[Rfam]
RNA sequence: CGGCCUAUACUUUCAGGGAUCAUUUCUAUAGUUCUUGACUUGAGAAAUGUGCUUCUAAAGUGUUAGGUUUUGCAAGCCACGAUGAUGAGUCAUGAUGUUCCUUCUAGAGCAAGAAGUAUACAGUGAACUUUGAUUCUGGUCAUAUGUUCUCUGUCGUUGAUGACUGUUGUUUGUUUCCUAGUGGAACUAGCAGGAAGGAACAUGUUCAGAGUGGU
Numbered sequence: 001c002g003g004c005c006u007a008u009a010c011u012u013u014c015a016g017g018g019a020u021c022a023u024u025u026c027u028a029u030a031g032u033u034c035u036u037g038a039c040u041u042g043a044g045a046a047a048u049g050u051g052c053u054u055c056u057a058a059a060g061u062g063u064u065a066g067g068u069u070u071u072g073c074a075a076g077c078c079a080c081g082a083u084g085a086u087g088a089g090u091c092a093u094g095a096u097g098u099u100c101c102u103u104c105u106a107g108a109g110c111a112a113g114a115a116g117u118a119u120a121c122a123g124u125g126a127a128c129u130u131u132g133a134u135u136c137u138g139g140u141c142a143u144a145u146g147u148u149c150u151c152u153g154u155c156g157u158u159g160a161u162g163a164c165u166g167u168u169g170u171u172u173g174u175u176u177c178c179u180a181g182u183g184g185a186a187c188u189a190g191c192a193g194g195a196a197g198g199a200a201c202a203u204g205u206u207c208a209g210a211g212u213g214g215u
Stems, first nucleotide, its partner, number of pairs: 002040002005037001009032003015027004050065002055062001076215005095203011109167003120154003125149004129144001131142003173187005
Small nucleolar RNA U3: a 215-nucleotide sequence from Muraenolepis orangiensis. Gene Ontology terms of the family: RNA processing and nucleolus. The literature on the family includes a 1997 paper in Nucleic Acids Res by Zwieb, "The uRNA database". The family's consensus secondary structure is taken from published work. The match comes from Rfam's covariance-model search (138 bits).